[Rfam]
The record is an 80-nucleotide RNA sequence from Desulfobulbus sp. Tol-SR, which matches "Group II catalytic intron D1-D4-1" in Rfam. On this family, see Chu et al., EMBO J 2001: "Control of branch-site choice by a group II intron". It scores 64 bits against the family's covariance model. The pairing is the family consensus, mapped onto this sequence.
RNA sequence: CGUCAUUCAUGGCAACAUGUCUGAGGUCCGGGCAGGAGUCAGCAGAGGUCAUAGUAGUUCGCCACUGGCGAACGAAGGAC
Numbered sequence: 001c002g003u004c005a006u007u008c009a010u011g012g013c014a015a016c017a018u019g020u021c022u023g024a025g026g027u028c029c030g031g032g033c034a035g036g037a038g039u040c041a042g043c044a045g046a047g048g049u050c051a052u053a054g055u056a057g058u059u060c061g062c063c064a065c066u067g068g069c070g071a072a073c074g075a076a077g078g079a080c
Stems, first nucleotide, its partner, number of pairs: 001026001004023002008019004039046002048080003057073006